[Rfam]
Rfam assigns this 212-nucleotide RNA sequence to the family "IS605-orfB-I RNA".
RNA sequence: GUCGUAUAUAGAUGUAUUAGUCGCAAGUCAGACUAGCAUUUCCCUUUACGACACAAUAAAAUUAGAAACUAUUUCCAAUAGUAUUAUUUGCUAAAGAGCAACUUUAGGUUGCUGAAAAUGAUUUAUGGGUAGUGGAAUAGGUUAACCGUAAGACCUUUGGUUGAAAAACUAUGAAAUUAAGCCUCAGAUAUUUUAUCUUUGGUUACGGGAAA
Numbered sequence: 001g002u003c004g005u006a007u008a009u010a011g012a013u014g015u016a017u018u019a020g021u022c023g024c025a026a027g028u029c030a031g032a033c034u035a036g037c038a039u040u041u042c043c044c045u046u047u048a049c050g051a052c053a054c055a056a057u058a059a060a061a062u063u064a065g066a067a068a069c070u071a072u073u074u075c076c077a078a079u080a081g082u083a084u085u086a087u088u089u090g091c092u093a094a095a096g097a098g099c100a101a102c103u104u105u106a107g108g109u110u111g112c113u114g115a116a117a118a119u120g121a122u123u124u125a126u127g128g129g130u131a132g133u134g135g136a137a138u139a140g141g142u143u144a145a146c147c148g149u150a151a152g153a154c155c156u157u158u159g160g161u162u163g164a165a166a167a168a169c170u171a172u173g174a175a176a177u178u179a180a181g182c183c184u185c186a187g188a189u190a191u192u193u194u195a196u197c198u199u200u201g202g203u204u205a206c207g208g209g210a211a212a
Stems, first nucleotide, its partner, number of pairs: 001052006008045001010041006018035005023029001068133007083122007097113002100110003139156005146208005151177001158171005182202002186198005
About this RNA:
Rfam classes the family as a small RNA.